This 351-nucleotide RNA from Elsinoe batatas belongs to the Rfam family "Nuclear RNase P".
It scores 42 bits against the family's covariance model.
The family has 116 seed sequences and 3,848 matches in Rfam 15.1.
Rfam's curators write: Ribonuclease P (RNase P) is a ubiquitous endoribonuclease, found in archaea, bacteria and eukarya as well as chloroplasts and mitochondria.
Its Rfam clan is "RNaseP clan".
On this family, see Xiao et al., Annu Rev Biochem 2002: "Eukaryotic Ribonuclease P: A Plurality of Ribonucleoprotein Enzymes".
RNA sequence: GUCCUCGUCAACGCUGCGUUUCUUUGCUCCCACACAGACAGAGCUUGCUCUUGUCAUCCAAGCAAAUGAGAAAUUCGGAGUAAUCUUCACCUUCUGCCAUGCAACGCCCUCGCUUUUACCAAGGAUACGGCUGCCACUGGCCACUGCGGGUGACCGCACGGCGUGAAUACGCCCGCAACCGGCAUCAGAAACUCAGGACCGCGCUUGUCGUGGUUUCUAUGGAAGCUGGUGCGAAGAUUGUAUUUGCCACGGCAAGAUACUUUAGUGCAAUACGCGGCGUGCCUUGAGCUCAUGACCUUGAUUGGUCAUGGGUGAAGGGUUCCAUUCGAUUCCGAUUACUCUGACGAGGAC
Numbered sequence: 001g002u003c004c005u006c007g008u009c010a011a012c013g014c015u016g017c018g019u020u021u022c023u024u025u026g027c028u029c030c031c032a033c034a035c036a037g038a039c040a041g042a043g044c045u046u047g048c049u050c051u052u053g054u055c056a057u058c059c060a061a062g063c064a065a066a067u068g069a070g071a072a073a074u075u076c077g078g079a080g081u082a083a084u085c086u087u088c089a090c091c092u093u094c095u096g097c098c099a100u101g102c103a104a105c106g107c108c109c110u111c112g113c114u115u116u117u118a119c120c121a122a123g124g125a126u127a128c129g130g131c132u133g134c135c136a137c138u139g140g141c142c143a144c145u146g147c148g149g150g151u152g153a154c155c156g157c158a159c160g161g162c163g164u165g166a167a168u169a170c171g172c173c174c175g176c177a178a179c180c181g182g183c184a185u186c187a188g189a190a191a192c193u194c195a196g197g198a199c200c201g202c203g204c205u206u207g208u209c210g211u212g213g214u215u216u217c218u219a220u221g222g223a224a225g226c227u228g229g230u231g232c233g234a235a236g237a238u239u240g241u242a243u244u245u246g247c248c249a250c251g252g253c254a255a256g257a258u259a260c261u262u263u264a265g266u267g268c269a270a271u272a273c274g275c276g277g278c279g280u281g282c283c284u285u286g287a288g289c290u291c292a293u294g295a296c297c298u299u300g301a302u303u304g305g306u307c308a309u310g311g312g313u314g315a316a317g318g319g320u321u322c323c324a325u326u327c328g329a330u331u332c333c334g335a336u337u338a339c340u341c342u343g344a345c346g347a348g349g350a351c
Base pairs, nucleotide, nucleotide: 001351002350003349004348008344009343010342013278014277015276016275017274018273019272023066024065025064026063037055038054039053040052041051042049076334077333078332079331080330085236086235087234088233145158146157147156148155149154160173161172162171163170164169178230179229180228181227182226183225196218197217198216279322281320282319283318284317285316